The record is a 102-nucleotide sequence from Gorilla gorilla, which matches "Y RNA" in Rfam. About the family: Y RNAs are components of the Ro ribonucleoprotein particle (Ro RNP), in association with Ro60 and La proteins. The Y RNAs and Ro60 and La proteins are well conserved, but the function of the Ro RNP is not known. On this family, see Dhahbi et al., Physiol Genomics 2013: "5'-YRNA fragments derived by processing of transcripts from specific YRNA genes and pseudogenes are abundant in human serum and plasma". Pairs were carried over by alignment from the consensus structure, which is taken from published work.

RNA sequence: AGCUGGUCCAAGUGCAAUGGUGUUUACAACUGAUUGAUCACAACCAAUUAUAGAUUUCUUUGUUCCUUCUCCACUCCCGCUGCUUCACCUAACUAGCCUUAA
Numbered sequence: 001a002g003c004u005g006g007u008c009c010a011a012g013u014g015c016a017a018u019g020g021u022g023u024u025u026a027c028a029a030c031u032g033a034u035u036g037a038u039c040a041c042a043a044c045c046a047a048u049u050a051u052a053g054a055u056u057u058c059u060u061u062g063u064u065c066c067u068u069c070u071c072c073a074c075u076c077c078c079g080c081u082g083c084u085u086c087a088c089c090u091a092a093c094u095a096g097c098c099u100u101a102a
Stems, first nucleotide, its partner, number of pairs: 002097006010090001014086001016081001018079003022076001028064003032060002